TPP riboswitch aptamer (THI element): a 99-nucleotide RNA sequence from Marinisporobacter balticus. Pairs were carried over by alignment from the consensus structure, which is taken from published work. Its family is annotated with thiamine pyrophosphate binding in the Gene Ontology. A search with the family's covariance model found it, with a score of 75 bits.
[Rfam]
RNA sequence: UAGUUUUGCUAGGGGUGCCUUUUGGCUGAGAAGGAAAAAUCCUAACCCUUUAAACCUGAUACAGUUAAUACUGAUGUAGGGAAGCAAGAAGAUUAGAUU
Numbered sequence: 001u002a003g004u005u006u007u008g009c010u011a012g013g014g015g016u017g018c019c020u021u022u023u024g025g026c027u028g029a030g031a032a033g034g035a036a037a038a039a040u041c042c043u044a045a046c047c048c049u050u051u052a053a054a055c056c057u058g059a060u061a062c063a064g065u066u067a068a069u070a071c072u073g074a075u076g077u078a079g080g081g082a083a084g085c086a087a088g089a090a091g092a093u094u095a096g097a098u099u
Stems, first nucleotide, its partner, number of pairs: 006087005011049004017026003033042003055080004062073003